[Rfam]
A member of the RNA family "Mason-Pfizer monkey virus packaging signal" from Sciurus vulgaris, 292 nucleotides long. A search with the family's covariance model found it, with a score of 162 bits. Gene Ontology term of the family: viral genome packaging. The family has 9 seed sequences and 2,921 matches in Rfam 15.1. By type it is a cis-regulatory element. The organism belongs to Sciurus, within Eukaryota. About the family: This family represents a group of sequences that are related to the Mason-Pfizer monkey virus (MPMV) packaging signal. The packaging signal is located in the 5' UTR and is required for specific RNA encapsidation.
RNA sequence: UGGCGCCCAACGGUGUGGCUUUGGAUACGGGGGAAUUUGCGAGGGAAGAGGCGUCUAAGUGUUCAGCCGAAGAGAAAAAAAAAAAAAAAGUGAAAGUCAGUUCAACAAAGAUCACUGCGAGAGCCUGCCUCGCUGUUCUUAAAGGUACAGUAGCGCCUAAGUAUGGGACAAGAAUUAAGUAAGCAUAAAGUUUUUGUUAAGCAAUUAAAAGAAGCUUUAAAGACACGGGGAGGAAAGGUUAAUAGUAAUGAUCUUUGUAAGUUUUUUGACCUUAUUAAGGAUACCUGUCCGU
Numbered sequence: 001u002g003g004c005g006c007c008c009a010a011c012g013g014u015g016u017g018g019c020u021u022u023g024g025a026u027a028c029g030g031g032g033g034a035a036u037u038u039g040c041g042a043g044g045g046a047a048g049a050g051g052c053g054u055c056u057a058a059g060u061g062u063u064c065a066g067c068c069g070a071a072g073a074g075a076a077a078a079a080a081a082a083a084a085a086a087a088a089a090g091u092g093a094a095a096g097u098c099a100g101u102u103c104a105a106c107a108a109a110g111a112u113c114a115c116u117g118c119g120a121g122a123g124c125c126u127g128c129c130u131c132g133c134u135g136u137u138c139u140u141a142a143a144g145g146u147a148c149a150g151u152a153g154c155g156c157c158u159a160a161g162u163a164u165g166g167g168a169c170a171a172g173a174a175u176u177a178a179g180u181a182a183g184c185a186u187a188a189a190g191u192u193u194u195u196g197u198u199a200a201g202c203a204a205u206u207a208a209a210a211g212a213a214g215c216u217u218u219a220a221a222g223a224c225a226c227g228g229g230g231a232g233g234a235a236a237g238g239u240u241a242a243u244a245g246u247a248a249u250g251a252u253c254u255u256u257g258u259a260a261g262u263u264u265u266u267u268g269a270c271c272u273u274a275u276u277a278a279g280g281a282u283a284c285c286u287g288u289c290c291g292u
Stems, first nucleotide, its partner, number of pairs: 006033003013028003038057001039052002097145002101142002111137001113135001116132002119129001151171001153169001156167004176219003179215002226268007236254006277292001279290004